[Rfam]
This 40-nucleotide RNA from Natronobacillus azotifigens belongs to the Rfam family "Ribosomal protein L19 leader". The organism belongs to Natronobacillus, within Bacteria. It scores 37 bits against the family's covariance model. This family is a putative r-protein leader autoregulatory structure found in B. subtilis and other low-GC Gram-positive bacteria. It is located in the 5' untranslated regions of mRNAs encoding ribosomal protein L19 (rplS). It is annotated as a cis-regulatory leader. On this family, see Zengel and Lindahl, Prog Nucleic Acid Res Mol Biol 1994: "Diverse mechanisms for regulating ribosomal protein synthesis in Escherichia coli".
RNA sequence: ACGAUGUUCCGCUGUUAUACUUAAUUGAUAUGAGCAUUGG
Numbered sequence: 001a002c003g004a005u006g007u008u009c010c011g012c013u014g015u016u017a018u019a020c021u022u023a024a025u026u027g028a029u030a031u032g033a034g035c036a037u038u039g040g
Base pairs, nucleotide, nucleotide: 003038004037005036006035007034008033009032013030014029015028016027017026